[Rfam]
RNA: 7SK RNA
RNA sequence: GGAUGUGAGGGCGAUCUGGCUGCGACAUCUGUCACCCCAUUGAUCGCCAGGGUUGAUUCGGCUGAUCUGGCUGGCUAGGCGGGUGUCCCCUUCCUCCCUCACCGCUCCAUGUGCGUCCCUCCCGAAGCUGCGCGCUCGGUCGAAGAGGACGACCUUCCCCGAUAGAGACGGUACCGUUCAUCGGUCAAGGGUAUACGGUAGCUGCGCUCCCCUGCUAGAACCUCCAAACAAGCUCAAGGUCCAUUUGUAGGAGAACGUAGGGUAGUCAAGCUUCCAAGACUGCAGACACAUCCAAGUGAGGCACUGCAUGGGGCAGUCUGCCAUUGUUU
Numbered sequence: 001g002g003a004u005g006u007g008a009g010g011g012c013g014a015u016c017u018g019g020c021u022g023c024g025a026c027a028u029c030u031g032u033c034a035c036c037c038c039a040u041u042g043a044u045c046g047c048c049a050g051g052g053u054u055g056a057u058u059c060g061g062c063u064g065a066u067c068u069g070g071c072u073g074g075c076u077a078g079g080c081g082g083g084u085g086u087c088c089c090c091u092u093c094c095u096c097c098c099u100c101a102c103c104g105c106u107c108c109a110u111g112u113g114c115g116u117c118c119c120u121c122c123c124g125a126a127g128c129u130g131c132g133c134g135c136u137c138g139g140u141c142g143a144a145g146a147g148g149a150c151g152a153c154c155u156u157c158c159c160c161g162a163u164a165g166a167g168a169c170g171g172u173a174c175c176g177u178u179c180a181u182c183g184g185u186c187a188a189g190g191g192u193a194u195a196c197g198g199u200a201g202c203u204g205c206g207c208u209c210c211c212c213u214g215c216u217a218g219a220a221c222c223u224c225c226a227a228a229c230a231a232g233c234u235c236a237a238g239g240u241c242c243a244u245u246u247g248u249a250g251g252a253g254a255a256c257g258u259a260g261g262g263u264a265g266u267c268a269a270g271c272u273u274c275c276a277a278g279a280c281u282g283c284a285g286a287c288a289c290a291u292c293c294a295a296g297u298g299a300g301g302c303a304c305u306g307c308a309u310g311g312g313g314c315a316g317u318c319u320g321c322c323a324u325u326g327u328u329u
Base pairs, nucleotide, nucleotide: 001108002107003106005102006101007100008099009098010097011096013093014092018090019089024087025086026085027084028083029082030081031080032079033078035074036073037070038069039068042067043066044065045064046062047061048060116171117170119167120166121165122139123138124137125136127135128134140162141161142160147158148157149156201271202270203269207265208264210262211261212260213259214258215257222253223252224251225250228248229247230246231245232244294329295328296327298324300322301321302320303317304316305315306314307313